[Rfam]
RNA sequence: GUGAGGUGAUGAUGGAGUUUAUCCAUUCUCUGAGCGCAGCGGUCCUGCCCUCCUGCAGCGCUCCGGUUCCUGUUCUAGGCACUGGGUGCUGUGCAGCUUCCAGACACUCUUCAGUCUCCCAGUGUUCUACUGGGGAGCUGCUGUGGUGUGUGGCUGGCUGCCUGCAGGAGGGAAGUGGUGUGCUGUGGCAGGGUUGGAGCCCCUCUUUGGGGGGGGGCUCUGCCCCUGCUGAGAUGAGGGAUGAUGUCUGAUCGC
Numbered sequence: 001g002u003g004a005g006g007u008g009a010u011g012a013u014g015g016a017g018u019u020u021a022u023c024c025a026u027u028c029u030c031u032g033a034g035c036g037c038a039g040c041g042g043u044c045c046u047g048c049c050c051u052c053c054u055g056c057a058g059c060g061c062u063c064c065g066g067u068u069c070c071u072g073u074u075c076u077a078g079g080c081a082c083u084g085g086g087u088g089c090u091g092u093g094c095a096g097c098u099u100c101c102a103g104a105c106a107c108u109c110u111u112c113a114g115u116c117u118c119c120c121a122g123u124g125u126u127c128u129a130c131u132g133g134g135g136a137g138c139u140g141c142u143g144u145g146g147u148g149u150g151u152g153g154c155u156g157g158c159u160g161c162c163u164g165c166a167g168g169a170g171g172g173a174a175g176u177g178g179u180g181u182g183c184u185g186u187g188g189c190a191g192g193g194u195u196g197g198a199g200c201c202c203c204u205c206u207u208u209g210g211g212g213g214g215g216g217g218c219u220c221u222g223c224c225c226c227u228g229c230u231g232a233g234a235u236g237a238g239g240g241a242u243g244a245u246g247u248c249u250g251a252u253c254g255c
Stems, first nucleotide, its partner, number of pairs: 010254004017247002020244001023240002026238003030233002034229002039189002042186001043180001045178004049172002051169007060089002063086002066082002069079003093161006106147002112140003117135008191226003195222004200217007
RNA: Small nucleolar RNA SNORD17
Organism: Zapornia atra